Description:
A member of the RNA family "Mycobacterium sRNA Ms_IGR-8", 63 nucleotides long. By type it is a small RNA. Rfam 15.1 lists 26 matches to the family in 15 species. On this family, see Li et al., RNA 2013: "Identification of small RNAs in Mycobacterium smegmatis using heterologous Hfq".
RNA sequence: ACCCGGGACUUACGCCAAUGUGAAGCUGUUGCGAAUUUCCCGCGGGAAUCUCGCAGCAGCUUC
Numbered sequence: 001a002c003c004c005g006g007g008a009c010u011u012a013c014g015c016c017a018a019u020g021u022g023a024a025g026c027u028g029u030u031g032c033g034a035a036u037u038u039c040c041c042g043c044g045g046g047a048a049u050c051u052c053g054c055a056g057c058a059g060c061u062u063c
Stems, first nucleotide, its partner, number of pairs: 022063013035049001039045001
Dot-bracket structure: .....................((((((((((((((...(.....)...).)))))))))))))